[Rfam]
RNA sequence: GGCCGGGUGGCGAAAUGGUAUCGCGUCAGAUUUCGGCGAACUUUCGAGUUCAUGAAACCGUUAUCUCUACCUCUGAAGAUUGUGGGUUCGAAUCCCAUCUCGGUCG
Numbered sequence: 001g002g003c004c005g006g007g008u009g010g011c012g013a014a015a016u017g018g019u020a021u022c023g024c025g026u027c028a029g030a031u032u033u034c035g036g037c038g039a040a041c042u043u044u045c046g047a048g049u050u051c052a053u054g055a056a057a058c059c060g061u062u063a064u065c066u067c068u069a070c071c072u073c074u075g076a077a078g079a080u081u082g083u084g085g086g087u088u089c090g091a092a093u094c095c096c097a098u099c100u101c102g103g104u105c106g
Base pairs, nucleotide, nucleotide: 001105002104003103004102005101006100007099010024011023012022013021026076027075028074029073030072082098083097084096085095086094
Source information: This 106-nucleotide RNA sequence from Pestalotiopsis fici belongs to the Rfam family "tRNA". NCBI's taxonomy places the organism under Eukaryota, Fungi, Xylariomycetidae, Sporocadaceae, Pestalotiopsis fici. The family's RNA type in Rfam is transfer RNA.